[Rfam]
Rfam assigns this 75-nucleotide RNA sequence from Centaurea solstitialis to the family "Plastid-ycf2 5UTR RNA". By type it is a cis-regulatory element. The family's consensus secondary structure was predicted with LocARNA. Plastid ycf2 is a non-coding RNA (ncRNA) recognised in plastids. It was found in the prime untranslated region (5UTR) of ycf2 genes, it presents a tRNA-like motif which suggests it can be involved in mRNA maturation, particularly involved in defining the precise 5' end of the transcript. A reference for the family is Richter et al. (2023), "Retrograde signaling in plants: A critical review focusing on the GUN pathway and beyond", Plant Commun. The source organism's lineage runs through Eukaryota, Embryophyta, Mesangiospermae, Asterales and Centaurea.

RNA sequence: UCAUAUCCAGUAGGAAUUGAACCUACGAAUUCGCCAAUUAUGAGUUGGGUGGUUUAACCAUUCAUCCAUGGAUGC
Dot-bracket structure: ...(((((.(((((.......))))).............(((.(.((((((.......)))))).))))))))).